[Rfam]
RNA sequence: GGAAAUGGGUGAGUAACUGGUGUUCUCAGCAGUCUUCAAAACUGACUUGGCGGCUCUGGCCGUCGGUAGGUUCGAUUCCUACACGUUUCC
Numbered sequence: 001g002g003a004a005a006u007g008g009g010u011g012a013g014u015a016a017c018u019g020g021u022g023u024u025c026u027c028a029g030c031a032g033u034c035u036u037c038a039a040a041a042c043u044g045a046c047u048u049g050g051c052g053g054c055u056c057u058g059g060c061c062g063u064c065g066g067u068a069g070g071u072u073c074g075a076u077u078c079c080u081a082c083a084c085g086u087u088u089c090c
Stems, first nucleotide, its partner, number of pairs: 001090007009082001011027003015024003028047001030044004049064005067081004
This 90-nucleotide RNA from Cetobacterium ceti belongs to the Rfam family "Selenocysteine transfer RNA". Its family is annotated with triplet codon-amino acid adaptor activity in the Gene Ontology. Its Rfam clan is "tRNA clan".